Description
The record is a 74-nucleotide RNA from Hymenobacter ginkgonis, which matches "Fluoride riboswitch aptamer (crcB RNA motif)" in Rfam. The organism belongs to Hymenobacter, within Bacteria. The match comes from Rfam's covariance-model search (41 bits).
RNA sequence: GCGCAGUACGGUGAUGGAUUUCCACCGCGAACCGCCGGCGCCUGGUGCGCUGCGCUGAUGAUUCCUACGAGACG
Numbered sequence: 001g002c003g004c005a006g007u008a009c010g011g012u013g014a015u016g017g018a019u020u021u022c023c024a025c026c027g028c029g030a031a032c033c034g035c036c037g038g039c040g041c042c043u044g045g046u047g048c049g050c051u052g053c054g055c056u057g058a059u060g061a062u063u064c065c066u067a068c069g070a071g072a073c074g
Base pairs, nucleotide, nucleotide: 010026011025012024013023016065017064018063020061021060034055035054